[Rfam]
RNA sequence: UGUGGUUCUUGGGUGAUGCACCCGGAACCAGAGAGGAGGGAGACUGAUUCCGGGGUGUGUCACCCAAGAAUCGCC
Numbered sequence: 001u002g003u004g005g006u007u008c009u010u011g012g013g014u015g016a017u018g019c020a021c022c023c024g025g026a027a028c029c030a031g032a033g034a035g036g037a038g039g040g041a042g043a044c045u046g047a048u049u050c051c052g053g054g055g056u057g058u059g060u061c062a063c064c065c066a067a068g069a070a071u072c073g074c075c
Stems, first nucleotide, its partner, number of pairs: 002074002005071013019057005024051004029046003
Rfam assigns this 75-nucleotide RNA sequence from Cnephaeus nilssonii to the family "mir-9223 microRNA precursor family". Pairs were carried over by alignment from the consensus structure, which was predicted with RNAalifold. It scores 53 bits against the family's covariance model. Taxonomically the source falls in Cnephaeus (Eukaryota, Teleostomi, Euteleostomi, Yangochiroptera).